[Rfam]
RNA sequence: GGCGGCAUAGCCAAGUGGUAAGGCAGAGGUCUGCAAAACCUUUAUCCCCGGUUCGAAUCCGGGUGUCGCCU
Number, nucleotide and partner (000 for none) at each position: 001g070002g069003c068004g067005g066006c065007a064008u000009a000010g024011c023012c022013a000014a000015g000016u000017g000018g000019u000020a000021a000022g012023g011024c010025a000026g042027a041028g040029g039030u038031c000032u000033g000034c000035a000036a000037a000038a030039c029040c028041u027042u026043u000044a000045u000046c000047c063048c062049c061050g060051g059052u000053u000054c000055g000056a000057a000058u000059c051060c050061g049062g048063g047064u007065g006066u005067c004068g003069c002070c001071u000
Source information: The family of this 71-nucleotide RNA sequence from Bacillus subtilis is "tRNA". From the family's description: Transfer RNA (tRNA) molecules are approximately 80 nucleotides in length. It is annotated as a transfer RNA. The source organism's lineage runs through Bacteria, Bacillati, Caryophanales, Bacillaceae and Bacillus.